[Rfam]
RNA: Archaeal large subunit ribosomal RNA, nucleotides 1719 to 2077
Organism: Salinarchaeum sp. IM2453
RNA sequence: CGGGAGCAACCAACGUUAGGGAAUUCGGCAAGUUGGUCCCGUAAGUUCGCGAUAAGGGAUGCCUGCCCCGCAACGGGGCAGGUCGCAGUGACUAGGACGCUCCGACUGUCUAAUAAAAACAUAGGUGGUCGCAAAUCCGCAAGGACUUGUACGGCCACUGAAUCCUGCCCAGUGCGGGUAUCUGAACACCCAUUACAAUGGGGCGAAGGACCCGUUAACGGCGGGGGUAACUAUGACCCUCUUAAGGUAGCGUAGUACCUUGCCGCUUCAGUAGCGGCUUGCAUGAAUGGAUUAACGAGAGCGUCACUGUCCCAACGUUGGGCCCGGUGAACUGUACGUUCCAGUGCGGAGUCUGGAGA
Numbered sequence: 001c002g003g004g005a006g007c008a009a010c011c012a013a014c015g016u017u018a019g020g021g022a023a024u025u026c027g028g029c030a031a032g033u034u035g036g037u038c039c040c041g042u043a044a045g046u047u048c049g050c051g052a053u054a055a056g057g058g059a060u061g062c063c064u065g066c067c068c069c070g071c072a073a074c075g076g077g078g079c080a081g082g083u084c085g086c087a088g089u090g091a092c093u094a095g096g097a098c099g100c101u102c103c104g105a106c107u108g109u110c111u112a113a114u115a116a117a118a119a120c121a122u123a124g125g126u127g128g129u130c131g132c133a134a135a136u137c138c139g140c141a142a143g144g145a146c147u148u149g150u151a152c153g154g155c156c157a158c159u160g161a162a163u164c165c166u167g168c169c170c171a172g173u174g175c176g177g178g179u180a181u182c183u184g185a186a187c188a189c190c191c192a193u194u195a196c197a198a199u200g201g202g203g204c205g206a207a208g209g210a211c212c213c214g215u216u217a218a219c220g221g222c223g224g225g226g227g228u229a230a231c232u233a234u235g236a237c238c239c240u241c242u243u244a245a246g247g248u249a250g251c252g253u254a255g256u257a258c259c260u261u262g263c264c265g266c267u268u269c270a271g272u273a274g275c276g277g278c279u280u281g282c283a284u285g286a287a288u289g290g291a292u293u294a295a296c297g298a299g300a301g302c303g304u305c306a307c308u309g310u311c312c313c314a315a316c317g318u319u320g321g322g323c324c325c326g327g328u329g330a331a332c333u334g335u336a337c338g339u340u341c342c343a344g345u346g347c348g349g350a351g352u353c354u355g356g357a358g359a
Base pairs, nucleotide, nucleotide: 001326002325003324004323010321011320012319013318014317015316016315017314019312020311021310036060037059038058039057040056045050061083062082063081064080065079066078067077068076069075084088096305097304098303099302100301101300102299103297104296107121108120109119124159125158126157127156128155129154130153131152132149136145137144138143162292163291164290165289167222168221169220172219173218174215175214176213177212178211181210182209183208189202190201191200192199223241224240225239226238227237228236242246262278263277264276265275266274267273340357341356342355343354344353